[Rfam]
RNA sequence: AAACCCGCACAACGGCUUCCUGGCGUGCGGCGAUAACCCAACGGAGCA
Numbered sequence: 001a002a003a004c005c006c007g008c009a010c011a012a013c014g015g016c017u018u019c020c021u022g023g024c025g026u027g028c029g030g031c032g033a034u035a036a037c038c039c040a041a042c043g044g045a046g047c048a
Stems, first nucleotide, its partner, number of pairs: 005030006013022002015047003019044002
This 48-nucleotide RNA sequence from Pseudorhodobacter sp. PARRP1 belongs to the Rfam family "SAM/SAH riboswitch aptamer". Its family is annotated with S-adenosylmethionine metabolic process and regulation of gene expression in the Gene Ontology. A reference for the family is Weickhmann et al. (2019), "The structure of the SAM/SAH-binding riboswitch", Nucleic Acids Res. It scores 51 bits against the family's covariance model.